[Rfam]
RNA sequence: GUCGACCGGGCGCCGAAUCUUCGAAGCACACGGUGCGGAGGGGAGCCGGGGACCCAACUGCAAGAUCAGGAUCGGUUCGGUCUCAGAUCGUCAAGGGGUGAAUCCAUCAAAGGUAGGGCUGCUCCGGCCCGAACCCGUCAGCUAACCCGGUAGGCGUUCAGCAGUGCCCCG
Numbered sequence: 001g002u003c004g005a006c007c008g009g010g011c012g013c014c015g016a017a018u019c020u021u022c023g024a025a026g027c028a029c030a031c032g033g034u035g036c037g038g039a040g041g042g043g044a045g046c047c048g049g050g051g052a053c054c055c056a057a058c059u060g061c062a063a064g065a066u067c068a069g070g071a072u073c074g075g076u077u078c079g080g081u082c083u084c085a086g087a088u089c090g091u092c093a094a095g096g097g098g099u100g101a102a103u104c105c106a107u108c109a110a111a112g113g114u115a116g117g118g119c120u121g122c123u124c125c126g127g128c129c130c131g132a133a134c135c136c137g138u139c140a141g142c143u144a145a146c147c148c149g150g151u152a153g154g155c156g157u158u159c160a161g162c163a164g165u166g167c168c169c170c171g
Base pairs, nucleotide, nucleotide: 011156012155013154014153018044019043020042021041022040045151046150047149048148049147050146055095096136097135098134104113105112116130117129118128119127
The record is a 171-nucleotide RNA from Microbispora rosea, which matches "c-di-AMP riboswitch aptamer (ydaO/yuaA leader)" in Rfam. It scores 70 bits against the family's covariance model. The organism belongs to Microbispora rosea, within Bacteria. This family represents a conserved RNA structure found upstream of the ydaO and yuaA genes in Bacillus subtilis and related genes in other bacteria.